[Rfam]
RNA sequence: AGGGUGACCCCGCGGUGCUGUCGGACCCCCGACCUGGCAGCGUCGCGGGGCUUUCCA
Numbered sequence: 001a002g003g004g005u006g007a008c009c010c011c012g013c014g015g016u017g018c019u020g021u022c023g024g025a026c027c028c029c030c031g032a033c034c035u036g037g038c039a040g041c042g043u044c045g046c047g048g049g050g051c052u053u054u055c056c057a
Stems, first nucleotide, its partner, number of pairs: 002056003008050015
Rfam assigns this 57-nucleotide RNA from Saccharopolyspora hordei to the family "F6 TB sRNA". A reference for the family is Arnvig and Young (2009), "Identification of small RNAs in Mycobacterium tuberculosis", Mol Microbiol. A search with the family's covariance model found it, with a score of 63 bits. The organism belongs to Saccharopolyspora, within Bacteria.